[Rfam]
RNA sequence: GGGACUGGUCGCGACUGGCGAGGGUGGGGCACCACCGGGGAGUGGCCGCCGCCCCAUGUGGAGGGGACGUCGCCCGCCUGGGCGUCCCGC
Numbered sequence: 001g002g003g004a005c006u007g008g009u010c011g012c013g014a015c016u017g018g019c020g021a022g023g024g025u026g027g028g029g030c031a032c033c034a035c036c037g038g039g040g041a042g043u044g045g046c047c048g049c050c051g052c053c054c055c056a057u058g059u060g061g062a063g064g065g066g067a068c069g070u071c072g073c074c075c076g077c078c079u080g081g082g083c084g085u086c087c088c089g090c
Stems, first nucleotide, its partner, number of pairs: 006048007015039002017078004024035004067085005
RNA: ZMP/ZTP riboswitch aptamer (pfl RNA motif)